[Rfam]
RNA sequence: UUCGCAAUACAAACAACAUUUAAACAACCCCUCUUCACCGUCUAAACAAACCCAACCCCAAACUCACCAUGUCUCCCUGCUCCUGCUCUUCUUGCUCCUGCAGCAACGACUGCAACGGCUGCUCCUGCACCGCCUGCGGUGUAAGUGUCC
Numbered sequence: 001u002u003c004g005c006a007a008u009a010c011a012a013a014c015a016a017c018a019u020u021u022a023a024a025c026a027a028c029c030c031c032u033c034u035u036c037a038c039c040g041u042c043u044a045a046a047c048a049a050a051c052c053c054a055a056c057c058c059c060a061a062a063c064u065c066a067c068c069a070u071g072u073c074u075c076c077c078u079g080c081u082c083c084u085g086c087u088c089u090u091c092u093u094g095c096u097c098c099u100g101c102a103g104c105a106a107c108g109a110c111u112g113c114a115a116c117g118g119c120u121g122c123u124c125c126u127g128c129a130c131c132g133c134c135u136g137c138g139g140u141g142u143a144a145g146u147g148u149c150c
Stems, first nucleotide, its partner, number of pairs: 078102003085095002112137003121128002
The family of this 150-nucleotide RNA from Penicillium cataractarum is "A. fumigatus sRNA Afu_254". On this family, see Jochl et al., Nucleic Acids Res 2008: "Small ncRNA transcriptome analysis from Aspergillus fumigatus suggests a novel mechanism for regulation of protein synthesis".